[Rfam]
RNA sequence: UUCUAUCUUCGGGGCAGGGUGUAAUUCCCGACCGACGGUAACAAGUGUAAUAGCUUGAAGUCCGUGACCCGCUUAUGCGGUGGAUCUGGUGAAACUCCAGAACCGACAGUUAAAGUCUGGAUGGGAGAAGAUAAAG
Numbered sequence: 001u002u003c004u005a006u007c008u009u010c011g012g013g014g015c016a017g018g019g020u021g022u023a024a025u026u027c028c029c030g031a032c033c034g035a036c037g038g039u040a041a042c043a044a045g046u047g048u049a050a051u052a053g054c055u056u057g058a059a060g061u062c063c064g065u066g067a068c069c070c071g072c073u074u075a076u077g078c079g080g081u082g083g084a085u086c087u088g089g090u091g092a093a094a095c096u097c098c099a100g101a102a103c104c105g106a107c108a109g110u111u112a113a114a115g116u117c118u119g120g121a122u123g124g125g126a127g128a129a130g131a132u133a134a135a136g
Stems, first nucleotide, its partner, number of pairs: 004133007017029003031116002033105002035065004060103002069080002085101005107119003
The record is a 136-nucleotide RNA sequence from Paraliobacillus ryukyuensis, which matches "FMN riboswitch aptamer (RFN element)" in Rfam. A search with the family's covariance model found it, with a score of 120 bits. The source organism's lineage runs through Bacteria, Bacillati, Bacillota, Bacilli and Paraliobacillus.